[Rfam]
About this RNA: Rfam assigns this 119-nucleotide sequence from Saccharopolyspora elongata to the family "Group II catalytic intron D1-D4-2". A reference for the family is Lehmann and Schmidt (2003), "Group II introns: structure and catalytic versatility of large natural ribozymes", Crit Rev Biochem Mol Biol. Its family is annotated with Group II intron splicing in the Gene Ontology. About the family: Group II introns are found in rRNA, tRNA and mRNA of organelles in fungi, plants and protists, and also in mRNA in bacteria. The base pairs follow the family's consensus structure. Lineage of the source: Bacteria > Bacillati > Actinomycetes > Pseudonocardiaceae > Saccharopolyspora. A search with the family's covariance model found it, with a score of 92 bits.
RNA sequence: GAAGGAUUGGCCCUUCGGUGCCGCCCUGCGGGGGGAGGCAUCAAGCCGCCACAUGCUGCGUUGGCUGAAGACCGUCGUGGUGAGCGAUGAGGGAAAAGGCGUCGUGAGAGACGUCAGGC
Numbered sequence: 001g002a003a004g005g006a007u008u009g010g011c012c013c014u015u016c017g018g019u020g021c022c023g024c025c026c027u028g029c030g031g032g033g034g035g036a037g038g039c040a041u042c043a044a045g046c047c048g049c050c051a052c053a054u055g056c057u058g059c060g061u062u063g064g065c066u067g068a069a070g071a072c073c074g075u076c077g078u079g080g081u082g083a084g085c086g087a088u089g090a091g092g093g094a095a096a097a098g099g100c101g102u103c104g105u106g107a108g109a110g111a112c113g114u115c116a117g118g119c
Stems, first nucleotide, its partner, number of pairs: 001016005017042006024035004047118001049092002052089003055081002058078003062074003098115006
Dot-bracket structure: (((((......)))))((((((.((((....)))).))))))....(.((.(((((.(((.(((.......))).))).)).....))).)).....((((((......))))))..).